[Rfam]
RNA sequence: UUAAUGUUUCUUGCUCAAAUGAGUAUUCCAACAGCAGUAGCCUUAUGCAACAAGAGCAUAUAUUUUUUACUUGUAUCACUGUAAUAUGAUGUUGCUGGAAUGCUACUGUUUCUGAGAUGCUCAUUUGAGCAAGUAAUAUUAG
Numbered sequence: 001u002u003a004a005u006g007u008u009u010c011u012u013g014c015u016c017a018a019a020u021g022a023g024u025a026u027u028c029c030a031a032c033a034g035c036a037g038u039a040g041c042c043u044u045a046u047g048c049a050a051c052a053a054g055a056g057c058a059u060a061u062a063u064u065u066u067u068u069a070c071u072u073g074u075a076u077c078a079c080u081g082u083a084a085u086a087u088g089a090u091g092u093u094g095c096u097g098g099a100a101u102g103c104u105a106c107u108g109u110u111u112c113u114g115a116g117a118u119g120c121u122c123a124u125u126u127g128a129g130c131a132a133g134u135a136a137u138a139u140u141a142g
Stems, first nucleotide, its partner, number of pairs: 004139005010133018029114002

A member of the RNA family "MIR828 microRNA precursor family" from Populus trichocarpa, 142 nucleotides long.